[Rfam]
RNA sequence: GAGUCUAACGUCUAUGCGAGUGUUUGGGUGUGAAACCCGUGCGCGUAAUGAAAGUGAACGUAGGUUGGGGCCUCUCGGGGCGCACAAUCGACCGAUCCUGAAGAAUUUCGGAUGGAUUUGAGUAAGAGCAUAGCUGUUGGGACCCGAAAGAUGGUGAACUAUGCCUGAAUAGGGUGAAGCCAGAGGAAACUCUGGUGGAGGCUCGUAGCGGUUCUGACGUGCAAAUCGAUCGUCGAAUUUGGGUAUAGGGGCGAAAGACUAAUCGAACCAUCUAGUAGCUGGUU
Numbered sequence: 001g002a003g004u005c006u007a008a009c010g011u012c013u014a015u016g017c018g019a020g021u022g023u024u025u026g027g028g029u030g031u032g033a034a035a036c037c038c039g040u041g042c043g044c045g046u047a048a049u050g051a052a053a054g055u056g057a058a059c060g061u062a063g064g065u066u067g068g069g070g071c072c073u074c075u076c077g078g079g080g081c082g083c084a085c086a087a088u089c090g091a092c093c094g095a096u097c098c099u100g101a102a103g104a105a106u107u108u109c110g111g112a113u114g115g116a117u118u119u120g121a122g123u124a125a126g127a128g129c130a131u132a133g134c135u136g137u138u139g140g141g142a143c144c145c146g147a148a149a150g151a152u153g154g155u156g157a158a159c160u161a162u163g164c165c166u167g168a169a170u171a172g173g174g175u176g177a178a179g180c181c182a183g184a185g186g187a188a189a190c191u192c193u194g195g196u197g198g199a200g201g202c203u204c205g206u207a208g209c210g211g212u213u214c215u216g217a218c219g220u221g222c223a224a225a226u227c228g229a230u231c232g233u234c235g236a237a238u239u240u241g242g243g244u245a246u247a248g249g250g251g252c253g254a255a256a257g258a259c260u261a262a263u264c265g266a267a268c269c270a271u272c273u274a275g276u277a278g279c280u281g282g283u284u
Stems, first nucleotide, its partner, number of pairs: 005140006012133006020044003025039005048055002063089005070081003091123002093120003096116003103109001143282002146279001150272006159248011170236001172204004179196007208233004213229002216227002250260002
A member of the RNA family "Eukaryotic large subunit ribosomal RNA" from Tetrapisispora phaffii, 284 nucleotides of a longer RNA. The family's consensus secondary structure is taken from published work.